This 177-nucleotide RNA sequence from Serinibacter arcticus belongs to the Rfam family "Actinobacteria sRNA Ms_IGR-5".
The organism belongs to Serinibacter, within Bacteria.

RNA sequence: ACACGGAGAGGAGGUGGUCCCAGACAUGAUCUUUCUGAGGACGUGUGAGGUGGUCGCCCGCUAGUCGGGCCCACGGACGGGCUCGUCGGUGAAUACCGGCGAUCACCGGAACCCGCAGGAGUCGCACCGUCGUCCAGUGCGGCAGUCGAGAGAUCGACGGCCUGCGGGUUCUUCCGU
Numbered sequence: 001a002c003a004c005g006g007a008g009a010g011g012a013g014g015u016g017g018u019c020c021c022a023g024a025c026a027u028g029a030u031c032u033u034u035c036u037g038a039g040g041a042c043g044u045g046u047g048a049g050g051u052g053g054u055c056g057c058c059c060g061c062u063a064g065u066c067g068g069g070c071c072c073a074c075g076g077a078c079g080g081g082c083u084c085g086u087c088g089g090u091g092a093a094u095a096c097c098g099g100c101g102a103u104c105a106c107c108g109g110a111a112c113c114c115g116c117a118g119g120a121g122u123c124g125c126a127c128c129g130u131c132g133u134c135c136a137g138u139g140c141g142g143c144a145g146u147c148g149a150g151a152g153a154u155c156g157a158c159g160g161c162c163u164g165c166g167g168g169u170u171c172u173u174c175c176g177u
Stems, first nucleotide, its partner, number of pairs: 013058006059091004064086002067084006109171011122142006
It is annotated as a small RNA. The match comes from Rfam's covariance-model search (59 bits).